[Rfam]
RNA sequence: CUGAUACAAAAUAACUUAUUCUGUAGCCACUUUGAGUUACGAUAAUUACUAUAUUAAUUUAUGAGAUUAUAAUAACUUCUUACUAAGUGGUUUACCAUAAUGUUACGGUAAAUAUCCCCAUGUAUUAUAGUAACCCAACUAUCGUAAAUUAGUAUAUAAAAUUAUCGUAAAUAGAGGUGACUAUAUAAUAACUUAUUUUGUAGCUG
Numbered sequence: 001c002u003g004a005u006a007c008a009a010a011a012u013a014a015c016u017u018a019u020u021c022u023g024u025a026g027c028c029a030c031u032u033u034g035a036g037u038u039a040c041g042a043u044a045a046u047u048a049c050u051a052u053a054u055u056a057a058u059u060u061a062u063g064a065g066a067u068u069a070u071a072a073u074a075a076c077u078u079c080u081u082a083c084u085a086a087g088u089g090g091u092u093u094a095c096c097a098u099a100a101u102g103u104u105a106c107g108g109u110a111a112a113u114a115u116c117c118c119c120a121u122g123u124a125u126u127a128u129a130g131u132a133a134c135c136c137a138a139c140u141a142u143c144g145u146a147a148a149u150u151a152g153u154a155u156a157u158a159a160a161a162u163u164a165u166c167g168u169a170a171a172u173a174g175a176g177g178u179g180a181c182u183a184u185a186u187a188a189u190a191a192c193u194u195a196u197u198u199u200g201u202a203g204c205u206g
Base pairs, nucleotide, nucleotide: 001206003204005202006201007200008199009198010197011196012195013194014193016191017190018189019188020187022185023184024183025182026181028179029178030177031176032175033174037170038169039168040167041166042165043164044163045162046161047160050156051155052154053153054152055151056150057149058148059147060146061145062144065143066142067141090139091138092137093132094131095130097128098127099126100125101124102123103122107117108116